[Rfam]
This 106-nucleotide sequence from Leptolyngbya boryana belongs to the Rfam family "Guanidine-I riboswitch aptamer". Rfam's curators write: This family represents a conserved RNA structure found upstream of the ykkC and yxkD genes in Bacillus subtilis and related genes in other bacteria. The function of this family is unclear although it has been suggested that it may function to switch on efflux pumps and detoxification systems in response to harmful environmental molecules. The pairing is the family consensus, mapped onto this sequence.

RNA sequence: AUUUAUCGCUUCUAGGGUUCCGAUUCAGCACGAAUGUCUGGUCCAAGAGAAGCAAACUGUUUCGGAUUUCCGAGCAGUCACACGGAAGGAUAAAAGCCUGGGAGAG
Numbered sequence: 001a002u003u004u005a006u007c008g009c010u011u012c013u014a015g016g017g018u019u020c021c022g023a024u025u026c027a028g029c030a031c032g033a034a035u036g037u038c039u040g041g042u043c044c045a046a047g048a049g050a051a052g053c054a055a056a057c058u059g060u061u062u063c064g065g066a067u068u069u070c071c072g073a074g075c076a077g078u079c080a081c082a083c084g085g086a087a088g089g090a091u092a093a094a095a096g097c098c099u100g101g102g103a104g105a106g
Base pairs, nucleotide, nucleotide: 008053009052010051011050012049015044016043020041021040022038023035024034025033026032056078057077058076059075060074061073062072081101083104087099088098089097